[Rfam]
RNA sequence: CAAGUUUUGGGGUACGUGUCAGAAGUGCAUUUACAUCGGCAUUCCGCAGUUUGAGGUAUUUGUAAAUGCACUAUCUGGUACGACAUUCCAGAAUCG
Numbered sequence: 001c002a003a004g005u006u007u008u009g010g011g012g013u014a015c016g017u018g019u020c021a022g023a024a025g026u027g028c029a030u031u032u033a034c035a036u037c038g039g040c041a042u043u044c045c046g047c048a049g050u051u052u053g054a055g056g057u058a059u060u061u062g063u064a065a066a067u068g069c070a071c072u073a074u075c076u077g078g079u080a081c082g083a084c085a086u087u088c089c090a091g092a093a094u095c096g
Base pairs, nucleotide, nucleotide: 008090009089010088011087015082016081017080018079019078020077021076022075023074025071027069028068029067030066031065032064033063034062035061
The family of this 96-nucleotide RNA from Anopheles darlingi is "mir-277 microRNA precursor family". The source organism's lineage runs through Eukaryota, Pancrustacea, Insecta, Culicoidea and argyritarsis series.